The family of this 74-nucleotide RNA sequence from Octodon degus is "U1A polyadenylation inhibition element (PIE)".
[Rfam]
RNA sequence: CCACACAGCACUGUACCCAGAGUCUGUCCCCAGACAUUGCACCUCGCACUGUUAGGCUAGAAUUAAUAAAGUGU
Numbered sequence: 001c002c003a004c005a006c007a008g009c010a011c012u013g014u015a016c017c018c019a020g021a022g023u024c025u026g027u028c029c030c031c032a033g034a035c036a037u038u039g040c041a042c043c044u045c046g047c048a049c050u051g052u053u054a055g056g057c058u059a060g061a062a063u064u065a066a067u068a069a070a071g072u073g074u
Base pairs, nucleotide, nucleotide: 005052006051007050008049017046019044020043022035023034024033025032026031
Background: A search with the family's covariance model found it, with a score of 72 bits. Gene Ontology term of the family: regulation of mRNA polyadenylation. Lineage of the source: Eukaryota > Eumetazoa > Euteleostomi > Euarchontoglires > Octodon. For this family Rfam cites "Global and Local Dynamics of the U1A Polyadenylation Inhibition Element (PIE) RNA and PIE RNA-U1A Complexes" (Clerte and Hall, Biochemistry, 2004). The base pairs follow the family's consensus structure, which is taken from published work.